Annotation: nhaA-I RNA: a 56-nucleotide RNA from Orrella dioscoreae. From the family's description: Acidobacteria, Alphaproteobacteria, Betaproteobacteria and Gammaproteobacteria, Verrucomicrobia, cand. division NC10. Rfam classes the family as a riboswitch. Pairs were carried over by alignment from the consensus structure, which is taken from published work.
RNA sequence: GGGUUUUGGUCUCGCCAUGAGGCCAAGAGGUGAUUGCGUUGGUCGGGCCGCCAACG
Numbered sequence: 001g002g003g004u005u006u007u008g009g010u011c012u013c014g015c016c017a018u019g020a021g022g023c024c025a026a027g028a029g030g031u032g033a034u035u036g037c038g039u040u041g042g043u044c045g046g047g048c049c050g051c052c053a054a055c056g
Base pairs, nucleotide, nucleotide: 005027006026007025008024009023010022011021012020037056038055039054040053041052042051043050